RNA: Burkholderia sRNA Bp1_Cand612_SIPHT
Organism: Pararobbsia silviterrae
Nucleotides: 107
Base pairs, nucleotide, nucleotide: 008024009023010022011021012020013019014018039097040096041095042094044092050090051089052088054086055085056084
Number, partner (000 for none) and nucleotide at each position: 001000a002000a003000a004000a005000a006000a007000a008024a009023u010022g011021g012020g013019c014018g015000a016000a017000a018014c019013g020012c021011c022010c023009a024008u025000c026000a027000u028000c029000u030000c031000u032000u033000g034000c035000c036000g037000g038000u039097g040096g041095u042094c043000g044092c045000u046000c047000g048000u049000u050090g051089g052088g053000c054086c055085g056084c057000g058000c059000a060000u061000c062000u063000g064000c065000g066000c067000a068000u069000c070000g071000a072000a073000c074000a075000c076000a077000u078000c079000a080000c081000c082000c083000a084056g085055c086054g087000a088052c089051u090050u091000c092044g093000a094042g095041a096040u097039u098000u099000u100000a101000c102000a103000c104000u105000u106000u107000a